[Rfam]
RNA: mir-144 microRNA precursor family
Nucleotides: 078
Stems, first nucleotide, its partner, number of pairs: 007070002010067002013064008022056009032045003
Number, partner (000 for none) and nucleotide at each position: 001000g002000c003000c004000c005000a006000g007070g008069c009000c010067g011066g012000g013064a014063u015062a016061u017060c018059a019058u020057c021000g022056u023055a024054u025053a026052c027051u028050g029049u030048a031000a032045g033044u034043u035000u036000g037000c038000a039000a040000u041000g042000a043034g044033a045032c046000a047000c048030u049029a050028c051027a052026g053025u054024a055023u056022a057020g058019a059018u060017g061016a062015u063014g064013u065000a066011c067010u068000g069008g070007c071000g072000a073000g074000g075000g076000c077000c078000g